Shown here is a 129-nucleotide RNA from Brevibacterium linens, a member of the family "ALIL pseudoknot". Pairs were carried over by alignment from the consensus structure, which is taken from published work. A search with the family's covariance model found it, with a score of 70 bits.
RNA sequence: GGCUUUCUUCGCGGCGGAGCUCGACCGCCCCUCAAAGUAGUCGUCGCCUUCAUCGACGAGUGCAAAGACGAGUUCGGAGUCGAGCCGAUCUGUGCCACGCUGCGUGCUGCCGGCGUGAAGAUCGCUCCG
Dot-bracket structure: ............(((((.......))))).............................................(((((......((.(((...........................))).)))))))